[Rfam]
RNA sequence: GGGCCCCAGAAGACCAAGGGGCCCAAAAUUACCACUCAUUAGAUGCGUGGAAAUU
Number, nucleotide and partner (000 for none) at each position: 001g024002g023003g022004c021005c020006c019007c018008a000009g055010a054011a000012g000013a000014c050015c049016a048017a000018g007019g006020g005021g004022c003023c002024c001025a000026a000027a000028a000029u000030u000031a000032c000033c000034a000035c000036u000037c000038a000039u000040u000041a000042g000043a000044u000045g000046c000047g000048u016049g015050g014051a000052a000053a000054u010055u009
RNA: ribosomal frameshift site